[Rfam]
RNA sequence: GGGCCAGCUUAGCCUAGCGGUUCCCUCUCAUUUUCUAAGAAAAAUCUCCUACUGGUUCAAGUCCCGUAGGUGCUGCCUGGUCUUUUG
Numbered sequence: 001g002g003g004c005c006a007g008c009u010u011a012g013c014c015u016a017g018c019g020g021u022u023c024c025c026u027c028u029c030a031u032u033u034u035c036u037a038a039g040a041a042a043a044a045u046c047u048c049c050u051a052c053u054g055g056u057u058c059a060a061g062u063c064c065c066g067u068a069g070g071u072g073c074u075g076c077c078u079g080g081u082c083u084u085u086u087g
Stems, first nucleotide, its partner, number of pairs: 002082006012071004017067004025061002
Vault RNA: an 87-nucleotide RNA from Anolis carolinensis. Taxonomically the source falls in Anolis (Eukaryota, Chordata, Squamata, Anolidae). The family's RNA type in Rfam is non-coding RNA gene. Rfam describes the family as follows. This family of RNAs are found as part of the enigmatic vault ribonucleoprotein complex. The complex consists of a major vault protein (MVP), two minor vault proteins (VPARP and TEP1), and several small untranslated RNA molecules. It has been suggested that the vault complex is involved in drug resistance.